Actinobacteria sRNA Ms_IGR-5: a 174-nucleotide sequence from Enemella dayhoffiae. A search with the family's covariance model found it, with a score of 71 bits. The family's RNA type in Rfam is small RNA. Pairs were carried over by alignment from the consensus structure. Lineage of the source: Bacteria > Actinomycetes > Propionibacteriales > Propionibacteriaceae > Enemella.
RNA sequence: ACGCAGGAAAGGAGGUGGUCCGACCGAUGAAUGAUCAACGGACUUGUGAGGUGGCUCGCCGCUGAGGCGUCCACACCCCCGACCGGGGGUUGGACUGCGUGGCGAAUCCACACGAGCCACCGGCCCGCGGGUGUCGGCCCAGUCCACCGACGAACACGCCCGCGGGUCCCCAAU
Numbered sequence: 001a002c003g004c005a006g007g008a009a010a011g012g013a014g015g016u017g018g019u020c021c022g023a024c025c026g027a028u029g030a031a032u033g034a035u036c037a038a039c040g041g042a043c044u045u046g047u048g049a050g051g052u053g054g055c056u057c058g059c060c061g062c063u064g065a066g067g068c069g070u071c072c073a074c075a076c077c078c079c080c081g082a083c084c085g086g087g088g089g090u091u092g093g094a095c096u097g098c099g100u101g102g103c104g105a106a107u108c109c110a111c112a113c114g115a116g117c118c119a120c121c122g123g124c125c126c127g128c129g130g131g132u133g134u135c136g137g138c139c140c141a142g143u144c145c146a147c148c149g150a151c152g153a154a155c156a157c158g159c160c161c162g163c164g165g166g167u168c169c170c171c172a173a174u
Stems, first nucleotide, its partner, number of pairs: 014059001017056003060104005067098002069095004122168012134150004